[Rfam]
Small nucleolar RNA SNORD42: a 66-nucleotide sequence from Sarcophilus harrisii. The family has 7 seed sequences and 848 matches in Rfam 15.1. The base pairs follow the family's consensus structure, which was predicted with PFOLD. It scores 70 bits against the family's covariance model. On this family, see Galardi et al., Mol Cell Biol 2002: "Purified box C/D snoRNPs are able to reproduce site-specific 2'-O-methylation of target RNA in vitro". About the family: snoRNA U42 is found in intron 3 of the ribosomal protein L23a (RPL23a) gene in humans and is also present in mice.
RNA sequence: AUGCAAAUGAUGGAAAAUAUCAUUUUACAGAGAAAAAUGAUGUUAACAAAGGAACCACUGAUGCAU
Numbered sequence: 001a002u003g004c005a006a007a008u009g010a011u012g013g014a015a016a017a018u019a020u021c022a023u024u025u026u027a028c029a030g031a032g033a034a035a036a037a038u039g040a041u042g043u044u045a046a047c048a049a050a051g052g053a054a055c056c057a058c059u060g061a062u063g064c065a066u
Stems, first nucleotide, its partner, number of pairs: 001066005